RNA sequence: AUUCAUCUUCGGGGCAGGGUGUAAUUCCCGACCGGCGGUGUUGAGUUAAUGUUGUUAACUCUUAGUCCGUGAGCCUGUAAAAGGGCUGAUUUGGUGAGAUUCCAAAACCGACAGUAUAGUCUGGAUGGGAGAAGAUGGAG
Numbered sequence: 001a002u003u004c005a006u007c008u009u010c011g012g013g014g015c016a017g018g019g020u021g022u023a024a025u026u027c028c029c030g031a032c033c034g035g036c037g038g039u040g041u042u043g044a045g046u047u048a049a050u051g052u053u054g055u056u057a058a059c060u061c062u063u064a065g066u067c068c069g070u071g072a073g074c075c076u077g078u079a080a081a082a083g084g085g086c087u088g089a090u091u092u093g094g095u096g097a098g099a100u101u102c103c104a105a106a107a108c109c110g111a112c113a114g115u116a117u118a119g120u121c122u123g124g125a126u127g128g129g130a131g132a133a134g135a136u137g138g139a140g
Base pairs, nucleotide, nucleotide: 003138004137005136006135007134008133009132010131017029018028019027031120032119033110034109035070036069037068038067065108066107073086074085075084090106091105092104093103094102112123113122114121
RNA: FMN riboswitch aptamer (RFN element)